[Rfam]
RNA sequence: CGAGAAAACCCUCGUUAAGGAACUCGGCAAAAUGACCCCGUAACUUCGGGAGAAGGGGUACCCCAUUAAUGUGAAAGUUAUCCAACUGGAGCAUGAAGGGGUCGCAGAGAAAAGGCCCAAGCGACUGUUUACCAAAAACACAGGUUCCUGCUAAAUCGCAAGAUGACGUAUAGGAGCUGACGCCUGCCCGGUGCUGGAAGGUUAAGGGGAGAGGUUAGCGCAAGCGAAGCUUUAAACCGAAGCCCCAGUAAACGGCGGCCGUAACUAUAACGGUCCUAAGGUAGCGAAAUUCCUUGUCGGGUAAGUUCCGACCCGCACGAAAGGCGUAACGAUUUGGGCGCUGUCUCAACGAGGGACUCG
Numbered sequence: 001c002g003a004g005a006a007a008a009c010c011c012u013c014g015u016u017a018a019g020g021a022a023c024u025c026g027g028c029a030a031a032a033u034g035a036c037c038c039c040g041u042a043a044c045u046u047c048g049g050g051a052g053a054a055g056g057g058g059u060a061c062c063c064c065a066u067u068a069a070u071g072u073g074a075a076a077g078u079u080a081u082c083c084a085a086c087u088g089g090a091g092c093a094u095g096a097a098g099g100g101g102u103c104g105c106a107g108a109g110a111a112a113a114g115g116c117c118c119a120a121g122c123g124a125c126u127g128u129u130u131a132c133c134a135a136a137a138a139c140a141c142a143g144g145u146u147c148c149u150g151c152u153a154a155a156u157c158g159c160a161a162g163a164u165g166a167c168g169u170a171u172a173g174g175a176g177c178u179g180a181c182g183c184c185u186g187c188c189c190g191g192u193g194c195u196g197g198a199a200g201g202u203u204a205a206g207g208g209g210a211g212a213g214g215u216u217a218g219c220g221c222a223a224g225c226g227a228a229g230c231u232u233u234a235a236a237c238c239g240a241a242g243c244c245c246c247a248g249u250a251a252a253c254g255g256c257g258g259c260c261g262u263a264a265c266u267a268u269a270a271c272g273g274u275c276c277u278a279a280g281g282u283a284g285c286g287a288a289a290u291u292c293c294u295u296g297u298c299g300g301g302u303a304a305g306u307u308c309c310g311a312c313c314c315g316c317a318c319g320a321a322a323g324g325c326g327u328a329a330c331g332a333u334u335u336g337g338g339c340g341c342u343g344u345c346u347c348a349a350c351g352a353g354g355g356a357c358u359c360g
Base pairs, nucleotide, nucleotide: 001360002359003358004357009355010354011353012352013351014350015349016348018346019345020344035059036058037057038056039055044049060102061101062100063099064098082089083088103107115339116338117337118336119335120334121333122331123330126140127139128138143178144177145176146175147174148173149172150171151168155164156163157162181326182325183324184323186256187255188254191253192252193249194248195247196246197245200244201243202242206238207237211233212232213231214230215229218225219224257275258274259273260272261271262270276280286313296312297311298310299309300308301307

The family of this 360-nucleotide part of an RNA from Desulfoscipio gibsoniae is "Bacterial large subunit ribosomal RNA". Lineage of the source: Bacteria > Bacillota > Eubacteriales > Desulfallaceae > Desulfoscipio gibsoniae.